Shown here is an 89-nucleotide RNA from Ipomoea nil, a member of the family "Plastid-psbM 3UTR RNA". Rfam's curators write: Plastid psbM is a non-coding RNA (ncRNA) recognised in plastids. It was found in the three prime untranslated region (3UTR) of psbM gene, its 3UTR location suggests a role in transcript maturation. The family has 237 seed sequences and 627 matches in Rfam 15.1. For this family Rfam cites "Retrograde signaling in plants: A critical review focusing on the GUN pathway and beyond" (Richter et al., Plant Commun, 2023). It scores 57 bits against the family's covariance model.
[Rfam]
RNA sequence: UAAUAGAUAGUAUGGUAAGAAAGAAAUAGAGGAAUCUUUUUUUCUACCAUACUAUCUAUUAGGGUUAUUCUAGUUAGAAAACUCUAGAA
Numbered sequence: 001u002a003a004u005a006g007a008u009a010g011u012a013u014g015g016u017a018a019g020a021a022a023g024a025a026a027u028a029g030a031g032g033a034a035u036c037u038u039u040u041u042u043u044c045u046a047c048c049a050u051a052c053u054a055u056c057u058a059u060u061a062g063g064g065u066u067a068u069u070c071u072a073g074u075u076a077g078a079a080a081a082c083u084c085u086a087g088a089a
Base pairs, nucleotide, nucleotide: 006056007055008054009053010052011051012050013049014048015047016046017045019044020043021042022041023040024039025038026037